RNA sequence: GCCCGGAUAGCUCAGUCGGUAGAGCAGAGGAUUGAAAAUCCUCGUGUCGGCGGUUCGAUUCCGUCUCCGGGCA
Numbered sequence: 001g002c003c004c005g006g007a008u009a010g011c012u013c014a015g016u017c018g019g020u021a022g023a024g025c026a027g028a029g030g031a032u033u034g035a036a037a038a039u040c041c042u043c044g045u046g047u048c049g050g051c052g053g054u055u056c057g058a059u060u061c062c063g064u065c066u067c068c069g070g071g072c073a
Stems, first nucleotide, its partner, number of pairs: 001072007010025004027043005049065005
The family of this 73-nucleotide RNA sequence from Oceanisphaera avium is "tRNA". It scores 71 bits against the family's covariance model. Lineage of the source: Bacteria > Pseudomonadota > Gammaproteobacteria > Aeromonadales > Oceanisphaera. The family's RNA type in Rfam is transfer RNA.